[Rfam]
RNA sequence: GUAGUCGAAUCCACAUCAAUCCACAUGUGUUAGUGUGGAUUGGAUUGAAACUUGAACUAAAUUACACCUCAAUCUACCUCAACACAUGUGGAUUGAAGUGAAUCCGAUA
Numbered sequence: 001g002u003a004g005u006c007g008a009a010u011c012c013a014c015a016u017c018a019a020u021c022c023a024c025a026u027g028u029g030u031u032a033g034u035g036u037g038g039a040u041u042g043g044a045u046u047g048a049a050a051c052u053u054g055a056a057c058u059a060a061a062u063u064a065c066a067c068c069u070c071a072a073u074c075u076a077c078c079u080c081a082a083c084a085c086a087u088g089u090g091g092a093u094u095g096a097a098g099u100g101a102a103u104c105c106g107a108u109a
Stems, first nucleotide, its partner, number of pairs: 004108004009103002012100003016096016035077009046066002
Shown here is a 109-nucleotide RNA sequence from Miscanthus lutarioriparius, a member of the family "MIR5565 microRNA precursor family". NCBI's taxonomy places the organism under Eukaryota, Tracheophyta, Euphyllophyta, Andropogonodae, Miscanthus. Rfam links the family to the GO terms miRNA-mediated post-transcriptional gene silencing and RISC complex.